[Rfam]
Shown here is a 132-nucleotide RNA from Lates calcarifer, a member of the family "Small nucleolar RNA SNORA68".
For this family Rfam cites "The family of box ACA small nucleolar RNAs is defined by an evolutionarily conserved secondary structure and ubiquitous sequence elements essential for RNA accumulation" (Ganot et al., Genes Dev, 1997).
A search with the family's covariance model found it, with a score of 70 bits.
It is annotated as an H/ACA-box small nucleolar RNA.
From the family's description: U68 is a member of the H/ACA class of small nucleolar RNAs (snoRNAs) which act as guides in the the modification of uridines to pseudouridines.

RNA sequence: UUUGCACCCAAACCCAAAGGUCCCACCGUGUCAGUGGUGUGAUUUUGUCUGGUGUGCAGACAGGAAACUGAUCCUUGUCGCCUUUCUCUGAUGCUGCAGUGCCUUUGAAAGUGAAUUCAAGGUUCAACAGAU
Numbered sequence: 001u002u003u004g005c006a007c008c009c010a011a012a013c014c015c016a017a018a019g020g021u022c023c024c025a026c027c028g029u030g031u032c033a034g035u036g037g038u039g040u041g042a043u044u045u046u047g048u049c050u051g052g053u054g055u056g057c058a059g060a061c062a063g064g065a066a067a068c069u070g071a072u073c074c075u076u077g078u079c080g081c082c083u084u085u086c087u088c089u090g091a092u093g094c095u096g097c098a099g100u101g102c103c104u105u106u107g108a109a110a111g112u113g114a115a116u117u118c119a120a121g122g123u124u125c126a127a128c129a130g131a132u
Base pairs, nucleotide, nucleotide: 002059003058004057005056006055007054009052019044020043021042022041024039025038026037027036028035070125071124073122074121075120076119082111083110084109085108086107090105091104093102094101